[Rfam]
Nucleotides: 053
Base pairs, nucleotide, nucleotide: 009048010047011046012045013044014043015042016041017040018039019038020037021036022035023034024033025032
Number, partner (000 for none) and nucleotide at each position: 001000a002000a003000g004000c005000c006000a007000u008000g009048g010047a011046g012045a013044a014043c015042c016041u017040u018039u019038u020037g021036a022035a023034u024033c025032a026000a027000a028000g029000u030000a031000g032025u033024g034023a035022u036021u037020c038019a039018a040017a041016a042015g043014g044013u045012u046011c047010u048009u049000a050000c051000a052000a053000a
This 53-nucleotide RNA from Morella rubra belongs to the Rfam family "Plastid-ccsA-ndhD-1 3UTR RNA". By type it is a cis-regulatory element. The source organism's lineage runs through Eukaryota, Gunneridae, fabids, Fagales and Morella. The base pairs follow the family's consensus structure, which was predicted with LocARNA. Plastid-ccsA-ndhD-1 is a non-coding RNA (ncRNA) recognised in plastids. It was found in the three prime untranslated region (3UTR) of ccsA and ndhD genes, its 3UTR location suggests a role in transcript maturation. The literature on the family includes a 2004 paper in Nucleic Acids Res by Zandueta-Criado and Bock, "Surprising features of plastid ndhD transcripts: addition of non-encoded nucleotides and polysome association of mRNAs with an unedited start codon".